RNA sequence: CGUUCUCUAGGCCUGAGAAGGUGUCUUGUAAGGGAUGCUGGAGGUAUGAGAAGUGCGAAU
Number, nucleotide and partner (000 for none) at each position: 001c055002g000003u052004u051005c050006u049007c048008u000009a000010g000011g045012c044013c043014u000015g000016a000017g000018a000019a000020g039021g038022u037023g036024u035025c034026u033027u032028g000029u000030a000031a000032g027033g026034g025035a024036u023037g022038c021039u020040g000041g000042a000043g013044g012045u011046a000047u000048g007049a006050g005051a004052a003053g000054u000055g001056c000057g000058a000059a000060u000
Overview
Bacterial large subunit ribosomal RNA: a 60-nucleotide part of an RNA from Betaproteobacteria bacterium UKL13-2. Clan: LSU clan. Rfam links the family to the GO terms ribosome and structural constituent of ribosome. It scores 2751 bits against the family's covariance model.